Record summary:
This 167-nucleotide RNA from Eubacterium sp. AF22-8LB belongs to the Rfam family "Lysine riboswitch aptamer". The family's consensus secondary structure is taken from published work. The match comes from Rfam's covariance-model search (79 bits). Lineage of the source: Bacteria > Bacillati > Clostridia > Eubacteriales > Eubacterium.
RNA sequence: AGUAAAGAUAGAGGCAGCAUUGCAUCAGAGUAGAGUAUGGAGUUGGCAGACUGUGAAGUGCUUGAAAGGUAACCAAUGCCGAAAGAAGUAAAAUGGCAAUUUUAUUUCUUGGGGUUAUAAGGAAUACUUAUAACACUCCUUCGUCAGGAAGAGGCGUUAUCUUAUAG
Numbered sequence: 001a002g003u004a005a006a007g008a009u010a011g012a013g014g015c016a017g018c019a020u021u022g023c024a025u026c027a028g029a030g031u032a033g034a035g036u037a038u039g040g041a042g043u044u045g046g047c048a049g050a051c052u053g054u055g056a057a058g059u060g061c062u063u064g065a066a067a068g069g070u071a072a073c074c075a076a077u078g079c080c081g082a083a084a085g086a087a088g089u090a091a092a093a094u095g096g097c098a099a100u101u102u103u104a105u106u107u108c109u110u111g112g113g114g115u116u117a118u119a120a121g122g123a124a125u126a127c128u129u130a131u132a133a134c135a136c137u138c139c140u141u142c143g144u145c146a147g148g149a150a151g152a153g154g155c156g157u158u159a160u161c162u163u164a165u166a167g
Stems, first nucleotide, its partner, number of pairs: 006162006017079006025071001033063006083110012111137002114134008139151004